[Rfam]
RNA: sroB RNA
RNA sequence: CUAGCCCGGUUACUAUGCGUAUAACUACAAUAUGAGAAAUUCCUCUUUGACUGGCCAAUAGCGAUAUUGGCCAUUUUUUU
Numbered sequence: 001c002u003a004g005c006c007c008g009g010u011u012a013c014u015a016u017g018c019g020u021a022u023a024a025c026u027a028c029a030a031u032a033u034g035a036g037a038a039a040u041u042c043c044u045c046u047u048u049g050a051c052u053g054g055c056c057a058a059u060a061g062c063g064a065u066a067u068u069g070g071c072c073a074u075u076u077u078u079u080u
Base pairs, nucleotide, nucleotide: 004018005017026032027031052073053072054071055070056069057068058067059066060065